The record is a 111-nucleotide sequence from Plutella xylostella, which matches "mir-8517 microRNA precursor family" in Rfam. The match comes from Rfam's covariance-model search (82 bits). Rfam links the family to the GO terms miRNA-mediated post-transcriptional gene silencing and RISC complex. Lineage of the source: Eukaryota > Pterygota > Endopterygota > Glossata > Plutella.
[Rfam]
RNA sequence: AAACUGGACGCUUUAGCUAUUGAACUGAAUGUUCUGUCACUCUCUGACAGAGAACGAUUUGUUCUUGACAGAGAGGAACAAAACAGUUCAAUAGCUAAAACGUCCACUAAC
Numbered sequence: 001a002a003a004c005u006g007g008a009c010g011c012u013u014u015a016g017c018u019a020u021u022g023a024a025c026u027g028a029a030u031g032u033u034c035u036g037u038c039a040c041u042c043u044c045u046g047a048c049a050g051a052g053a054a055c056g057a058u059u060u061g062u063u064c065u066u067g068a069c070a071g072a073g074a075g076g077a078a079c080a081a082a083a084c085a086g087u088u089c090a091a092u093a094g095c096u097a098a099a100a101c102g103u104c105c106a107c108u109a110a111c
Stems, first nucleotide, its partner, number of pairs: 003108001005106002012099015031084002033072007053063004